RNA sequence: AAUGACAAAGAUAAAAACGCAACGUAUACCUUCGGGUAUGCUAGAGCCGGUAGGUAGCCCGGCCGUCCUGUGAAUACAGGGUAAGUAACCUGCCCCUCCGGGUUGUCCGUUCUUUGUCCAUAGCAA
Numbered sequence: 001a002a003u004g005a006c007a008a009a010g011a012u013a014a015a016a017a018c019g020c021a022a023c024g025u026a027u028a029c030c031u032u033c034g035g036g037u038a039u040g041c042u043a044g045a046g047c048c049g050g051u052a053g054g055u056a057g058c059c060c061g062g063c064c065g066u067c068c069u070g071u072g073a074a075u076a077c078a079g080g081g082u083a084a085g086u087a088a089c090c091u092g093c094c095c096c097u098c099c100g101g102g103u104u105g106u107c108c109g110u111u112c113u114u115u116g117u118c119c120a121u122a123g124c125a126a
Base pairs, nucleotide, nucleotide: 004118005117006116007115008114009113010112011111046063047062048061049060050059065082066081067080068079069078070077092103093102094101095100
Dot-bracket structure: ...((((((((..................................(((((........))))).((((((......)))))).........((((....)))).......))))))))........

This 126-nucleotide RNA sequence from Ruminococcus flavefaciens belongs to the Rfam family "azaaromatic riboswitch aptamer (yjdF RNA)". The match comes from Rfam's covariance-model search (74 bits). The base pairs follow the family's consensus structure, which is taken from published work.